Overview:
Rfam assigns this 68-nucleotide sequence from Salmo trutta to the family "miR-430 microRNA precursor family". Pairs were carried over by alignment from the consensus structure, which was predicted with RNAalifold. Lineage of the source: Eukaryota > Opisthokonta > Chordata > Neopterygii > Salmo.
RNA sequence: ACAGCAACCCUAACAAAAGCAUUGACUGGUUUUGCCUGCAGUAAGUGCUUUUUUUUAAGAUAGCUGUU
Numbered sequence: 001a002c003a004g005c006a007a008c009c010c011u012a013a014c015a016a017a018a019g020c021a022u023u024g025a026c027u028g029g030u031u032u033u034g035c036c037u038g039c040a041g042u043a044a045g046u047g048c049u050u051u052u053u054u055u056u057a058a059g060a061u062a063g064c065u066g067u068u
Stems, first nucleotide, its partner, number of pairs: 004064002007061001009059001011057001013055001015053003018049006025042003